[Rfam]
RNA: Small nucleolar RNA R30/Z108
RNA sequence: UGAUGUUGUGAUGAUGUGAAACAAGCUCCCUCUUCUGAAGGAAUUGAGGACACUUGCUGGCAGAAUCGAACCAAUUAACCCUAUUGCCACCACUGAGUAA
Numbered sequence: 001u002g003a004u005g006u007u008g009u010g011a012u013g014a015u016g017u018g019a020a021a022c023a024a025g026c027u028c029c030c031u032c033u034u035c036u037g038a039a040g041g042a043a044u045u046g047a048g049g050a051c052a053c054u055u056g057c058u059g060g061c062a063g064a065a066u067c068g069a070a071c072c073a074a075u076u077a078a079c080c081c082u083a084u085u086g087c088c089a090c091c092a093c094u095g096a097g098u099a100a
Stems, first nucleotide, its partner, number of pairs: 006100004